Shown here is a 74-nucleotide RNA from Novosphingobium sediminicola, a member of the family "tRNA". The family's RNA type in Rfam is transfer RNA. The source organism's lineage runs through Bacteria, Pseudomonadati, Pseudomonadota, Alphaproteobacteria and Novosphingobium. It scores 69 bits against the family's covariance model. Transfer RNA (tRNA) molecules are approximately 80 nucleotides in length. Their secondary structure includes four short double-helical elements and three loops (D, anti-codon, and T loops).

RNA sequence: GCGAUUAUAGCUCAGUUGGUUAGAGCGCCGGUUUGUGGUACCGGAGGUCGAGGGUUCGAACCCCUUUAAUCGCC
Numbered sequence: 001g002c003g004a005u006u007a008u009a010g011c012u013c014a015g016u017u018g019g020u021u022a023g024a025g026c027g028c029c030g031g032u033u034u035g036u037g038g039u040a041c042c043g044g045a046g047g048u049c050g051a052g053g054g055u056u057c058g059a060a061c062c063c064c065u066u067u068a069a070u071c072g073c074c
Stems, first nucleotide, its partner, number of pairs: 001073007010026004028044005050066005